[Rfam]
The family of this 52-nucleotide RNA from Phreatobacter cathodiphilus is "chrB-b RNA".
Nucleotides: 052
Stems, first nucleotide, its partner, number of pairs: 001023006012052005027042005
Number, partner (000 for none) and nucleotide at each position: 001023c002022g003021g004020g005019g006018c007000c008000g009000a010000c011000g012052g013051c014050g015049g016048u017000c018006g019005c020004c021003c022002c023001g024000c025000g026000a027042g028041g029040c030039u031038g032000c033000u034000g035000c036000g037000g038031c039030g040029g041028c042027c043000c044000a045000a046000g047000c048016a049015c050014c051013g052012c

Source information: A search with the family's covariance model found it, with a score of 37 bits.